[Rfam]
RNA sequence: AUUUCUCUGCGGGUGGGGAUUUGUUGCAUUACUUGAACUUGUGUCUAUAAGAGUAUUGCACUUGUCCCGGCCUGUGGAGGAAAA
Numbered sequence: 001a002u003u004u005c006u007c008u009g010c011g012g013g014u015g016g017g018g019a020u021u022u023g024u025u026g027c028a029u030u031a032c033u034u035g036a037a038c039u040u041g042u043g044u045c046u047a048u049a050a051g052a053g054u055a056u057u058g059c060a061c062u063u064g065u066c067c068c069g070g071c072c073u074g075u076g077g078a079g080g081a082a083a084a
Stems, first nucleotide, its partner, number of pairs: 004080003009075006016068005023061002026059003030055005
Dot-bracket structure: ...(((..((((((.(((((..((.(((.(((((................))))).)))))..))))).))))))..)))....
This 84-nucleotide RNA from Phascolarctos cinereus belongs to the Rfam family "mir-92 microRNA precursor family". Gene Ontology terms of the family: miRNA-mediated post-transcriptional gene silencing and RISC complex. A search with the family's covariance model found it, with a score of 77 bits. Its Rfam clan is "mir-92 microRNA precursor clan". From the family's description: This family represents the microRNA precursor mir-92. Human miR-92 has two predicted hairpin precursor sequences: mir-92-1 on chromosome 13 and mir-92-2 on chromosome X. miR-92 has also been cloned from mouse embryonic stem cells. The mature sequence is excised from the 3' arm of the hairpin.